[Rfam]
The record is a 185-nucleotide RNA from Lentibacillus sp. CBA3610, which matches "Group II catalytic intron D1-D4-5" in Rfam.
It scores 46 bits against the family's covariance model.
Gene Ontology term of the family: Group II intron splicing.
For this family Rfam cites "The ins and outs of group II introns" (Bonen and Vogel, Trends Genet, 2001).
The base pairs follow the family's consensus structure.
RNA sequence: CUGAAGGAUUAUGUCGAGGAAUCGAAUGAGGAAGUAACUUUCUGAAAGGCUCUCCCUGCGUCGAAUAGCAAGCUAUUUAGUAAGAGAUUUCGUGUUAUAUUCUCGGUUAAUUGUUGCGAAGAUUUACCAUAACAGUCCUGCUGACGAACUUCUGAAUGUAUGGGUAUAGAAGCGCAUUAUAUAGA
Numbered sequence: 001c002u003g004a005a006g007g008a009u010u011a012u013g014u015c016g017a018g019g020a021a022u023c024g025a026a027u028g029a030g031g032a033a034g035u036a037a038c039u040u041u042c043u044g045a046a047a048g049g050c051u052c053u054c055c056c057u058g059c060g061u062c063g064a065a066u067a068g069c070a071a072g073c074u075a076u077u078u079a080g081u082a083a084g085a086g087a088u089u090u091c092g093u094g095u096u097a098u099a100u101u102c103u104c105g106g107u108u109a110a111u112u113g114u115u116g117c118g119a120a121g122a123u124u125u126a127c128c129a130u131a132a133c134a135g136u137c138c139u140g141c142u143g144a145c146g147a148a149c150u151u152c153u154g155a156a157u158g159u160a161u162g163g164g165u166a167u168a169g170a171a172g173c174g175c176a177u178u179a180u181a182u183a184g185a
Stems, first nucleotide, its partner, number of pairs: 018053003022049002031043001033041002061106004065098006072091001075088004114185002122177002125174001127172001128146001130144001134142002150171004156167004